Source information
Rfam assigns this 131-nucleotide RNA from Chaetura pelagica to the family "Small nucleolar RNA SNORA55".
RNA sequence: GCACCAAAACUUACCCAUUCCUGACUGUGCUGUGUGGGUGUGGGGAUACAUGGUGCUUAGAAAAAAGCAGAGUAAAUCCAGACAGGUGACUCCACCCAUUGAGCACCUGUCCCUACACCUCUGCAACAGUC
Numbered sequence: 001g002c003a004c005c006a007a008a009a010c011u012u013a014c015c016c017a018u019u020c021c022u023g024a025c026u027g028u029g030c031u032g033u034g035u036g037g038g039u040g041u042g043g044g045g046a047u048a049c050a051u052g053g054u055g056c057u058u059a060g061a062a063a064a065a066a067g068c069a070g071a072g073u074a075a076a077u078c079c080a081g082a083c084a085g086g087u088g089a090c091u092c093c094a095c096c097c098a099u100u101g102a103g104c105a106c107c108u109g110u111c112c113c114u115a116c117a118c119c120u121c122u123g124c125a126a127c128a129g130u131c
Stems, first nucleotide, its partner, number of pairs: 001056005012046001014044005020038002067124006081111007093103001095101001
Notes:
From the family's description: ACA55 is a member of the H/ACA class of snoRNA that guide the sites of modification of uridines to pseudouridines. It scores 100 bits against the family's covariance model.